RNA sequence: UCGUCGACGAUGGUCGGGGAGAUGAAGUGGAUGUGGGUGUCGAUGCCGCCGGCGGUGAGGAUCUUGCCGUUGCCCGAGAGGAUCUCGGUCUCCGGGCCGAUGACGAGGGCGGGGUCGACGCCGUCCAUCGUGUCCGGGUUGCCGGACUUGCCGAUGCCGGUGAUCCGGCCGUCGCGUAUGCCCACGUCGGCCUUGACGAUGCCCCAGUGAUCGAUGAUCACCGCGCCGGUGAUGACGGUGUCCGGGGCGCCCUCGGCGCGGGUCGUGCGGGACUGGCCCAUCGACUCGCGG
Number, nucleotide and partner (000 for none) at each position: 001u291002c290003g289004u000005c288006g287007a286008c000009g000010a000011u163012g000013g161014u160015c159016g158017g157018g074019g073020a000021g071022a070023u000024g000025a000026a000027g000028u051029g050030g049031a000032u048033g047034u000035g046036g000037g044038u043039g000040u000041c000042g000043a038044u037045g000046c035047c033048g032049c030050c029051g028052g000053c000054g000055g067056u066057g065058a000059g000060g000061a000062u000063c000064u000065u057066g056067c055068c000069g000070u022071u021072g000073c019074c018075c000076g151077a000078g000079a148080g147081g000082a000083u144084c000085u000086c000087g000088g142089u141090c000091u000092c138093c137094g000095g134096g133097c132098c000099g000100a000101u000102g129103a128104c000105g000106a000107g126108g125109g124110c123111g121112g000113g000114g000115u000116c000117g000118a000119c000120g000121c111122c000123g110124u109125c108126c107127a000128u103129c102130g000131u000132g097133u096134c095135c000136g000137g093138g092139u000140u000141g089142c088143c000144g083145g000146a000147c080148u079149u000150g000151c076152c000153g000154a000155u000156g000157c017158c016159g015160g014161u013162g000163a011164u000165c000166c000167g000168g277169c276170c275171g274172u000173c000174g000175c269176g268177u267178a266179u265180g264181c262182c261183c000184a000185c000186g000187u000188c000189g000190g224191c223192c000193u000194u220195g219196a000197c000198g000199a000200u000201g000202c000203c000204c213205c000206a000207g000208u000209g000210a000211u000212c000213g204214a000215u000216g000217a000218u000219c195220a194221c000222c000223g191224c190225g000226c000227c000228g000229g257230u000231g000232a000233u000234g252235a000236c000237g000238g250239u249240g248241u000242c000243c000244g000245g000246g000247g000248c240249g239250c238251c000252c234253u000254c000255g000256g000257c229258g000259c000260g000261g182262g181263u000264c180265g179266u178267g177268c176269g175270g000271g000272a000273c000274u171275g170276g169277c168278c000279c000280a000281u000282c000283g000284a000285c000286u007287c006288g005289c003290g002291g001
RNA: 5' ureB small RNA
Organism: Streptomyces sp. NRRL S-1521